[Rfam]
RNA sequence: GUUCUUAUUCACUUUAAGUUUGAGCACCAAGCCUCAGGCUUAUUGUUUGGUGUUCAACCUUACAGUGAGUACGAGC
Numbered sequence: 001g002u003u004c005u006u007a008u009u010c011a012c013u014u015u016a017a018g019u020u021u022g023a024g025c026a027c028c029a030a031g032c033c034u035c036a037g038g039c040u041u042a043u044u045g046u047u048u049g050g051u052g053u054u055c056a057a058c059c060u061u062a063c064a065g066u067g068a069g070u071a072c073g074a075g076c
Stems, first nucleotide, its partner, number of pairs: 006071008015062003025052008
RNA: mir-971 microRNA precursor family